The family of this 216-nucleotide RNA from Hordeum vulgare is "Plant small nucleolar RNA U3".
The family is grouped with related families in Rfam's "U3 clan".
For this family Rfam cites "The uRNA database" (Zwieb, Nucleic Acids Res, 1997).
Rfam classes the family as a C/D-box small nucleolar RNA.
Small nucleolar RNAs (snoRNAs) are involved in the processing and modification of rRNA in the nucleolus. There are two main classes of snoRNAs: the box C/D class, and the box H/ACA class. U3 snoRNA is a member of the box C/D class. Indeed, the box C/D element is a subset of the six short sequence elements found in all U3 snoRNAs, namely boxes A, A', B, C, C', and D. The U3 snoRNA secondary structure is characterised by a small 5' domain (with boxes A and A'), and a larger 3' domain (with boxes B, C, C', and D), the two domains being linked by a single-stranded hinge.
Gene Ontology terms of the family: nucleolus and RNA processing.
It scores 149 bits against the family's covariance model.
[Rfam]
RNA sequence: ACGACCUUACUUGAACAGGAUCUGUUCUAUAGGCUCGUACCGCUGCAUCCUUUACCAAUAAGGAGGCAAGCACUUCAGUCUGGUUGAUGCAUUCUGACCUCUGGGCCAGAGCGUGAUUAACGGCCUGGAUUCUUCUCUUGGUUGCAUCCGACGGCUGUAGAUGAUCGUUCCUGCCUGGGUCACACCAGCUCAGGGUGGCCCAGACACUCCCAAACC
Numbered sequence: 001a002c003g004a005c006c007u008u009a010c011u012u013g014a015a016c017a018g019g020a021u022c023u024g025u026u027c028u029a030u031a032g033g034c035u036c037g038u039a040c041c042g043c044u045g046c047a048u049c050c051u052u053u054a055c056c057a058a059u060a061a062g063g064a065g066g067c068a069a070g071c072a073c074u075u076c077a078g079u080c081u082g083g084u085u086g087a088u089g090c091a092u093u094c095u096g097a098c099c100u101c102u103g104g105g106c107c108a109g110a111g112c113g114u115g116a117u118u119a120a121c122g123g124c125c126u127g128g129a130u131u132c133u134u135c136u137c138u139u140g141g142u143u144g145c146a147u148c149c150g151a152c153g154g155c156u157g158u159a160g161a162u163g164a165u166c167g168u169u170c171c172u173g174c175c176u177g178g179g180u181c182a183c184a185c186c187a188g189c190u191c192a193g194g195g196u197g198g199c200c201c202a203g204a205c206a207c208u209c210c211c212a213a214a215c216c
Stems, first nucleotide, its partner, number of pairs: 001038002003035001005033003013027006044068003048064005082215001100204009110169004120158006126150005132144001135141002170194004176188001178186002